[Rfam]
The record is an 83-nucleotide sequence from Dichanthelium oligosanthes, which matches "Small nucleolar RNA Z161/Z228" in Rfam. Its family is annotated with nucleolus and RNA processing in the Gene Ontology. The family is grouped with related families in Rfam's "SNORD35 clan". The family's RNA type in Rfam is C/D-box small nucleolar RNA. NCBI's taxonomy places the organism under Eukaryota, Viridiplantae, Spermatophyta, Liliopsida, Dichanthelium. Rfam 15.1 lists 630 matches to the family in 214 species.
RNA sequence: GGGCCUGAUGAUGAGAAUAUACAAGUUAUCUCACAACGGUCUUCUGAGAACCGUUUUGAUGACACAAAUAUUCUCUGAAGCCC
Numbered sequence: 001g002g003g004c005c006u007g008a009u010g011a012u013g014a015g016a017a018u019a020u021a022c023a024a025g026u027u028a029u030c031u032c033a034c035a036a037c038g039g040u041c042u043u044c045u046g047a048g049a050a051c052c053g054u055u056u057u058g059a060u061g062a063c064a065c066a067a068a069u070a071u072u073c074u075c076u077g078a079a080g081c082c083c
Stems, first nucleotide, its partner, number of pairs: 001083004050054001